[Rfam]
RNA sequence: UUCGACCACUAGGGGGGCGAAUGUGAUGGUUCUAAAGAACGGUUGCUGAGCUGAGAUAGGAUAUAUCCUGACCCUUAGACCUGAUCUGGUUAAUACCAGCGGAGGAAAUGUGGCUAACAGAUUUU
Numbered sequence: 001u002u003c004g005a006c007c008a009c010u011a012g013g014g015g016g017g018c019g020a021a022u023g024u025g026a027u028g029g030u031u032c033u034a035a036a037g038a039a040c041g042g043u044u045g046c047u048g049a050g051c052u053g054a055g056a057u058a059g060g061a062u063a064u065a066u067c068c069u070g071a072c073c074c075u076u077a078g079a080c081c082u083g084a085u086c087u088g089g090u091u092a093a094u095a096c097c098a099g100c101g102g103a104g105g106a107a108a109u110g111u112g113g114c115u116a117a118c119a120g121a122u123u124u125u
Stems, first nucleotide, its partner, number of pairs: 006113004011075004017051002021047001058069004080105003086099004
RNA: TPP riboswitch aptamer (THI element)
Organism: Vagococcus allomyrinae